[Rfam]
Nucleotides: 060
Base pairs, nucleotide, nucleotide: 016044017043018042019041020040022038023037024036025035
Number, partner (000 for none) and nucleotide at each position: 001000u002000a003000c004000a005000a006000c007000g008000c009000c010000a011000u012000u013000a014000a015000a016044g017043g018042g019041g020040u021000u022038g023037u024036u025035c026000c027000c028000c029000a030000c031000c032000c033000a034000a035025g036024a037023g038022c039000u040020a041019c042018u043017u044016u045000a046000u047000c048000a049000u050000a051000u052000u053000a054000a055000g056000a057000a058000u059000u060000c